Record summary
Shown here is a 215-nucleotide RNA sequence from Lignipirellula cremea, a member of the family "Group II catalytic intron D1-D4-3". Group II introns are found in rRNA, tRNA and mRNA of organelles in fungi, plants and protists, and also in mRNA in bacteria. The literature on the family includes a 2001 paper in Trends Genet by Bonen and Vogel, "The ins and outs of group II introns".

[Rfam]
RNA sequence: GGAAGGGCGACCGACCGUGGGGAGGAAGCCUGCGAAUGCGUGCGUAAGUGCCGGCCUGUUUUCGCCGUCGGCCGCAUUCCCACCAAAGCUGCGAGGUUACGAACAGAAACGUCCUACAAGGCCGGUUCGACCAGGCGAGUGAGCACAACAUCACGAAGCCGUUCCCAGACGGUCGUUCAGGUAAAGGGCGAGCUUGCGCAGCGAAAGAUCACGUU
Numbered sequence: 001g002g003a004a005g006g007g008c009g010a011c012c013g014a015c016c017g018u019g020g021g022g023a024g025g026a027a028g029c030c031u032g033c034g035a036a037u038g039c040g041u042g043c044g045u046a047a048g049u050g051c052c053g054g055c056c057u058g059u060u061u062u063c064g065c066c067g068u069c070g071g072c073c074g075c076a077u078u079c080c081c082a083c084c085a086a087a088g089c090u091g092c093g094a095g096g097u098u099a100c101g102a103a104c105a106g107a108a109a110c111g112u113c114c115u116a117c118a119a120g121g122c123c124g125g126u127u128c129g130a131c132c133a134g135g136c137g138a139g140u141g142a143g144c145a146c147a148a149c150a151u152c153a154c155g156a157a158g159c160c161g162u163u164c165c166c167a168g169a170c171g172g173u174c175g176u177u178c179a180g181g182u183a184a185a186g187g188g189c190g191a192g193c194u195u196g197c198g199c200a201g202c203g204a205a206a207g208a209u210c211a212c213g214u215u
Stems, first nucleotide, its partner, number of pairs: 001016002005012002076215001078213001084207001088202006094195005110190006121182003125178001128175005134160003139154004